The record is a 130-nucleotide RNA sequence from Mesocricetus auratus, which matches "Small nucleolar RNA ACA64" in Rfam. It is annotated as an H/ACA-box small nucleolar RNA. Rfam links the family to the GO terms nucleolus and RNA processing. A reference for the family is Schattner et al. (2006), "A computational screen for mammalian pseudouridylation guide H/ACA RNAs", RNA.

RNA sequence: CUUCAUUAAAAAUCAUCUUUCUAGGCUUUGGCUGUGGCCAGAGUUGAGAUUCGGUGCCCAGGGCCACUGAGACCUCAGUUUACUGCCUGCUGCCCCAGAGUGGGAGGAUGAAACCCAGGCUCCUACAUUU
Numbered sequence: 001c002u003u004c005a006u007u008a009a010a011a012a013u014c015a016u017c018u019u020u021c022u023a024g025g026c027u028u029u030g031g032c033u034g035u036g037g038c039c040a041g042a043g044u045u046g047a048g049a050u051u052c053g054g055u056g057c058c059c060a061g062g063g064c065c066a067c068u069g070a071g072a073c074c075u076c077a078g079u080u081u082a083c084u085g086c087c088u089g090c091u092g093c094c095c096c097a098g099a100g101u102g103g104g105a106g107g108a109u110g111a112a113a114c115c116c117a118g119g120c121u122c123c124u125a126c127a128u129u130u
Stems, first nucleotide, its partner, number of pairs: 005055003009051002013047003024039004069123001071121001073119003080111003084107001088102003
Dot-bracket structure: ....(((.((..(((........((((........)))).....)))..)).))).............(.(.(((....(((.(...(((.........)))....).))).....))).).).......